RNA sequence: GCGGAGACAAAUGUUUCCGUUCACUCCUCACACCACACUCCGCCUGGAAAUUUUUUUCCAGGCGGUU
Number, nucleotide and partner (000 for none) at each position: 001g020002c019003g018004g017005a016006g015007a014008c013009a000010a000011a000012u000013g008014u007015u006016u005017c004018c003019g002020u001021u000022c000023a000024c000025u000026c000027c000028u000029c000030a000031c000032a000033c000034c000035a000036c000037a000038c000039u000040c000041c064042g063043c062044c061045u060046g059047g058048a057049a056050a055051u000052u000053u000054u000055u050056u049057u048058c047059c046060a045061g044062g043063c042064g041065g000066u000067u000
The family of this 67-nucleotide RNA sequence from Zarconia navalis is "Cyanobacterial functional RNA 1".
The family's RNA type in Rfam is small RNA.
The match comes from Rfam's covariance-model search (57 bits).